[Rfam]
RNA sequence: GGCCACCCGGUGACCCCGCCCCCCUCUGAUGCAUGGUGACUUGACGGACUUCCCCGUGGCAUUCCCCGUGACGCCGCAGGGAAGUCCCGUCAAGUCACUGUGCGUCAGAGGGGGACGGCGUCACACGGUGGCCCCCC
Numbered sequence: 001g002g003c004c005a006c007c008c009g010g011u012g013a014c015c016c017c018g019c020c021c022c023c024c025u026c027u028g029a030u031g032c033a034u035g036g037u038g039a040c041u042u043g044a045c046g047g048a049c050u051u052c053c054c055c056g057u058g059g060c061a062u063u064c065c066c067c068g069u070g071a072c073g074c075c076g077c078a079g080g081g082a083a084g085u086c087c088c089g090u091c092a093a094g095u096c097a098c099u100g101u102g103c104g105u106c107a108g109a110g111g112g113g114g115a116c117g118g119c120g121u122c123a124c125a126c127g128g129u130g131g132c133c134c135c136c137c
Stems, first nucleotide, its partner, number of pairs: 010124005017117002020114014035099013
mraW RNA: a 137-nucleotide RNA sequence from Aquarana catesbeiana. The source organism's lineage runs through Eukaryota, Euteleostomi, Sarcopterygii, Dipnotetrapodomorpha and Aquarana. The family's consensus secondary structure is taken from published work. A search with the family's covariance model found it, with a score of 51 bits. Rfam classes the family as a cis-regulatory element.